Notes
The record is a 125-nucleotide RNA from Pantoea alhagi, which matches "RtT RNA" in Rfam. The family has 57 seed sequences and 651 matches in Rfam 15.1. Gene Ontology term of the family: cellular response to amino acid starvation. The match comes from Rfam's covariance-model search (110 bits). A reference for the family is Bosl and Kersten (1991), "A novel RNA product of the tyrT operon of Escherichia coli", Nucleic Acids Res. The source organism's lineage runs through Bacteria, Pseudomonadati, Enterobacterales, Erwiniaceae and Pantoea.

[Rfam]
Nucleotides: 125
Stems, first nucleotide, its partner, number of pairs: 015116007022108001032088002035085001040083001042081002047057002064076005
Number, partner (000 for none) and nucleotide at each position: 001000a002000u003000c004000u005000u006000c007000c008000c009000c010000a011000u012000c013000g014000g015116g016115a017114g018113a019112a020111g021110g022108u023000g024000a025000g026000a027000a028000g029000c030000u031000u032088c033087g034000a035085c036000a037000a038000g039000g040083u041000u042081c043080g044000a045000g046000u047057c048056g049000a050000g051000c052000a053000g054000c055000g056048c057047g058000a059000g060000a061000c062000a063000a064076c065075g066074u067073g068072c069000g070000c071000a072068g073067c074066a075065c076064g077000g078000c079000c080043c081042g082000c083040a084000g085035g086000g087033u088032g089000a090000g091000g092000a093000g094000c095000g096000c097000a098000g099000c100000g101000a102000c103000g104000a105000g106000u107000c108022a109000u110021c111020c112019u113018u114017c115016u116015c117000c118000c119000a120000c121000c122000a123000c124000c125000a